[Rfam]
RNA sequence: AGCGAUCCGCAGGACGAGGUCUCUGGCCCGCUCCCGCUGCCUUCUGGGGCACCUUCCCCGGCUCCAGACGGCUUCCGGGAGCGGGCGGGGGACCUGGCCCUGCGGAUCGUUCAGC
Numbered sequence: 001a002g003c004g005a006u007c008c009g010c011a012g013g014a015c016g017a018g019g020u021c022u023c024u025g026g027c028c029c030g031c032u033c034c035c036g037c038u039g040c041c042u043u044c045u046g047g048g049g050c051a052c053c054u055u056c057c058c059c060g061g062c063u064c065c066a067g068a069c070g071g072c073u074u075c076c077g078g079g080a081g082c083g084g085g086c087g088g089g090g091g092a093c094c095u096g097g098c099c100c101u102g103c104g105g106a107u108c109g110u111u112c113a114g115c
Base pairs, nucleotide, nucleotide: 010102011101012100013099015097018094019093021091022090023089024088026086027085028084029083030082031081032080033079034078035077039072040071041070043068044067045066046065047064048063049062050061
This 115-nucleotide RNA from Nocardioides antri belongs to the Rfam family "mraW RNA". Pairs were carried over by alignment from the consensus structure, which is taken from published work. It is annotated as a cis-regulatory element.